[Rfam]
This 94-nucleotide RNA sequence from Pseudoxanthomonas suwonensis belongs to the Rfam family "Xanthomonas sRNA sX7". The family's RNA type in Rfam is small RNA. NCBI's taxonomy places the organism under Bacteria, Lysobacterales, Lysobacteraceae, Pseudoxanthomonas, Pseudoxanthomonas suwonensis. The match comes from Rfam's covariance-model search (61 bits).

RNA sequence: AGUCUCUCCGCUCCCCGUCGGCGUGCUGUCAGUGACGCGCCGGCGGGGGGCGGUUCCUUCAAGCCAGGAGGGCAGGUGCCACGGAUGGCGCAAU
Numbered sequence: 001a002g003u004c005u006c007u008c009c010g011c012u013c014c015c016c017g018u019c020g021g022c023g024u025g026c027u028g029u030c031a032g033u034g035a036c037g038c039g040c041c042g043g044c045g046g047g048g049g050g051c052g053g054u055u056c057c058u059u060c061a062a063g064c065c066a067g068g069a070g071g072g073c074a075g076g077u078g079c080c081a082c083g084g085a086u087g088g089c090g091c092a093a094u
Stems, first nucleotide, its partner, number of pairs: 008053012021040005063073003076091005